[Rfam]
RNA sequence: UUUACUUUAUGAUGAUGUCAUGAAAGUAGCUGACACUGGAAUCCAGAAGACUUAAUUUCAACCAAAUAAUAAAGGCUAGAUCCCAGUGUCAGCUACUCGGAUGACACCCUACUAGCGGAAGUU
Number, nucleotide and partner (000 for none) at each position: 001u000002u000003u000004a000005c118006u117007u000008u115009a000010u000011g000012a000013u000014g000015a000016u106017g105018u104019c103020a102021u101022g000023a000024a000025a097026g096027u095028a094029g093030c092031u091032g090033a089034c088035a087036c086037u085038g084039g083040a000041a081042u080043c079044c000045a077046g076047a000048a000049g000050a000051c000052u000053u000054a000055a000056u000057u000058u000059c000060a000061a000062c000063c000064a000065a000066a000067u000068a000069a000070u000071a000072a000073a000074g000075g000076c046077u045078a000079g043080a042081u041082c000083c039084c038085a037086g036087u035088g034089u033090c032091a031092g030093c029094u028095a027096c026097u025098c000099g000100g000101a021102u020103g019104a018105c017106a016107c000108c000109c000110u000111a000112c000113u000114a000115g008116c000117g006118g005119a000120a000121g000122u000123u000
The record is a 123-nucleotide sequence from Trichonephila clavata, which matches "Wolbachia sRNA 46" in Rfam. For this family Rfam cites "Wolbachia small noncoding RNAs and their role in cross-kingdom communications" (Mayoral et al., Proc Natl Acad Sci U S A, 2014). Lineage of the source: Eukaryota > Opisthokonta > Panarthropoda > Araneomorphae > Trichonephila. A search with the family's covariance model found it, with a score of 69 bits. It is annotated as a small RNA.